Description:
A member of the RNA family "mraW RNA" from Psychromicrobium silvestre, 112 nucleotides long. The base pairs follow the family's consensus structure, which is taken from published work.
[Rfam]
RNA sequence: UAGAGCUUCUUGAGCGAGAUCUCCAGCCGCCCUGCGCCACCUGACUCACCUUCCCCGGAGUCAGGCGGAGGGCAUGGCGCGGAUGGGGAUCUGGUUUAAGAAGGCUCGAUAU
Numbered sequence: 001u002a003g004a005g006c007u008u009c010u011u012g013a014g015c016g017a018g019a020u021c022u023c024c025a026g027c028c029g030c031c032c033u034g035c036g037c038c039a040c041c042u043g044a045c046u047c048a049c050c051u052u053c054c055c056c057g058g059a060g061u062c063a064g065g066c067g068g069a070g071g072g073c074a075u076g077g078c079g080c081g082g083a084u085g086g087g088g089a090u091c092u093g094g095u096u097u098a099a100g101a102a103g104g105c106u107c108g109a110u111a112u
Stems, first nucleotide, its partner, number of pairs: 008101007018091002021088005027082004031076001033074002035070001037068002040065008